[Rfam]
Shown here is a 179-nucleotide RNA sequence from Yinghuangia soli, a member of the family "c-di-AMP riboswitch aptamer (ydaO/yuaA leader)".
RNA sequence: AGCUGAGAAGCGACCACGGCAGAAGCGGGGGAACCAGGUGUAGUACGCCGGACCGGUCUCGACCGGUACGGCUUGGGGUGAAGCCGUGCCCGAAGCCCUCUCACGAGGGAUUUCGCGGUACGGCCGGGCAACUCCAGCCCGAAUCCGACAGCUCACCUCGCAGGCGUAGGAGAGGAACC
Numbered sequence: 001a002g003c004u005g006a007g008a009a010g011c012g013a014c015c016a017c018g019g020c021a022g023a024a025g026c027g028g029g030g031g032a033a034c035c036a037g038g039u040g041u042a043g044u045a046c047g048c049c050g051g052a053c054c055g056g057u058c059u060c061g062a063c064c065g066g067u068a069c070g071g072c073u074u075g076g077g078g079u080g081a082a083g084c085c086g087u088g089c090c091c092g093a094a095g096c097c098c099u100c101u102c103a104c105g106a107g108g109g110a111u112u113u114c115g116c117g118g119u120a121c122g123g124c125c126g127g128g129c130a131a132c133u134c135c136a137g138c139c140c141g142a143a144u145c146c147g148a149c150a151g152c153u154c155a156c157c158u159c160g161c162a163g164g165c166g167u168a169g170g171a172g173a174g175g176a177a178c179c
Stems, first nucleotide, its partner, number of pairs: 002165003025161006035075005076146003084123007126140004

Notes: NCBI's taxonomy places the organism under Bacteria, Actinomycetes, Kitasatosporales, Streptomycetaceae, Yinghuangia. Gene Ontology terms of the family: regulation of gene expression and cyclic-di-AMP binding.